The record is an 81-nucleotide RNA sequence from Prunus dulcis, which matches "Small nucleolar RNA R160" in Rfam.
snoR160 is a C/D box small nucleolar RNA, which acts as a methylation guide for 25S ribosomal RNA in plants. snoR160 has been alternatively named snoZ270 in rice.
RNA sequence: AGCAAAAUGAUGAGAUUUGUAUUACUGAUAAUUUGAUGUGGAAUCCCAUACCAAACUGUUCUUCAAAGUUCUCUGAUUGCU
Numbered sequence: 001a002g003c004a005a006a007a008u009g010a011u012g013a014g015a016u017u018u019g020u021a022u023u024a025c026u027g028a029u030a031a032u033u034u035g036a037u038g039u040g041g042a043a044u045c046c047c048a049u050a051c052c053a054a055a056c057u058g059u060u061c062u063u064c065a066a067a068g069u070u071c072u073c074u075g076a077u078u079g080c081u
Stems, first nucleotide, its partner, number of pairs: 001081005
Dot-bracket structure: (((((.......................................................................)))))
Gene Ontology terms of the family: nucleolus and RNA processing.